[Rfam]
RNA: EGFOA RNA
RNA sequence: UCCAUCCCAGACCGAGUACCGUCAAAGUCCGCGCAAGCGGAGGCAGUCGGAAUCGAGGCCGCGCGGGCGGCCACGUCGUAAAGCUUUACCUGGGGACGUCCGAGAUUCCGU
Number, nucleotide and partner (000 for none) at each position: 001u000002c000003c000004a000005u000006c094007c093008c092009a091010g090011a000012c000013c000014g000015a000016g000017u000018a000019c000020c000021g089022u088023c000024a087025a086026a085027g084028u041029c040030c039031g038032c037033g000034c000035a000036a000037g032038c031039g030040g029041a028042g000043g000044c000045a000046g000047u000048c110049g109050g108051a107052a106053u105054c104055g000056a000057g072058g071059c070060c069061g068062c067063g000064c000065g000066g000067g062068c061069g060070g059071c058072c057073a099074c098075g097076u096077c095078g000079u000080a000081a000082a000083g000084c027085u026086u025087u024088a022089c021090c010091u009092g008093g007094g006095g077096a076097c075098g074099u073100c000101c000102g000103a000104g054105a053106u052107u051108c050109c049110g048111u000